RNA: mir-5928 microRNA precursor family
RNA sequence: GGCACAAACUCAAAGUUGAGUAGUUUAGAAGGGUCAGAUAAUCCUUCUAAUCUAUUCUACUUCGAAUUUAGGCCC
Numbered sequence: 001g002g003c004a005c006a007a008a009c010u011c012a013a014a015g016u017u018g019a020g021u022a023g024u025u026u027a028g029a030a031g032g033g034u035c036a037g038a039u040a041a042u043c044c045u046u047c048u049a050a051u052c053u054a055u056u057c058u059a060c061u062u063c064g065a066a067u068u069u070a071g072g073c074c075c
Stems, first nucleotide, its partner, number of pairs: 001074003006069003011064001013062004018057006025050006032043003